[Rfam]
RNA: Small nucleolar RNA SNORA38
RNA sequence: UCCUCCUACAAAGGCAUGUUUUUGGUUCCCUGUCCUUGGACAUGUAACAAUCAAGGCAAAGAAAUUUGGUACAUUUGGAAAGGUCUGGGACCAACUCCCCACCCCCACCCCACCCCACCCCACCCCUGCACAGGCUCAAGAUCAACCAUCCCACAGAG
Numbered sequence: 001u002c003c004u005c006c007u008a009c010a011a012a013g014g015c016a017u018g019u020u021u022u023u024g025g026u027u028c029c030c031u032g033u034c035c036u037u038g039g040a041c042a043u044g045u046a047a048c049a050a051u052c053a054a055g056g057c058a059a060a061g062a063a064a065u066u067u068g069g070u071a072c073a074u075u076u077g078g079a080a081a082g083g084u085c086u087g088g089g090a091c092c093a094a095c096u097c098c099c100c101a102c103c104c105c106c107a108c109c110c111c112a113c114c115c116c117a118c119c120c121c122a123c124c125c126c127u128g129c130a131c132a133g134g135c136u137c138a139a140g141a142u143c144a145a146c147c148a149u150c151c152c153a154c155a156g157a158g
Base pairs, nucleotide, nucleotide: 002056003055004054015044016043017042018041019040020039021038024030025029068151069150073149075148093136095134096133